[Rfam]
RNA sequence: UAUGCGGGCCGGGCCCCUCUGGCGAUUGCGUGAAAAGUGAUCGUGAUGUCGGACCGCAUCG
Numbered sequence: 001u002a003u004g005c006g007g008g009c010c011g012g013g014c015c016c017c018u019c020u021g022g023c024g025a026u027u028g029c030g031u032g033a034a035a036a037g038u039g040a041u042c043g044u045g046a047u048g049u050c051g052g053a054c055c056g057c058a059u060c061g
Stems, first nucleotide, its partner, number of pairs: 006055002009052004022044008
RNA: terC RNA
Organism: Sphingobium vermicomposti